The family of this 76-nucleotide sequence from Trichogramma brassicae is "mir-965 microRNA precursor family". Gene Ontology terms of the family: miRNA-mediated post-transcriptional gene silencing and RISC complex. On this family, see Huang et al., Bioorg Khim 2012: "The regulation of silkworm fibroin L chain production by miRNA-965 and miRNA-1926 in insect cells". The match comes from Rfam's covariance-model search (67 bits).
RNA sequence: GACUCAGGGGGAAAGGUUAUAUCGGUUAUAUGAGUAUAUUUGAAUUCCAUAAGCGUAUAGCUUUUCCCCUUGAGUC
Number, nucleotide and partner (000 for none) at each position: 001g000002a000003c074004u073005c072006a071007g070008g000009g068010g067011g066012a000013a064014a063015g000016g000017u060018u059019a058020u057021a056022u000023c000024g000025g000026u053027u052028a000029u051030a050031u049032g048033a000034g000035u000036a000037u000038a000039u000040u000041u000042g000043a000044a000045u000046u000047c000048c032049a031050u030051a029052a027053g026054c000055g000056u021057a020058u019059a018060g017061c000062u000063u014064u013065u000066c011067c010068c009069c000070u007071u006072g005073a004074g003075u000076c000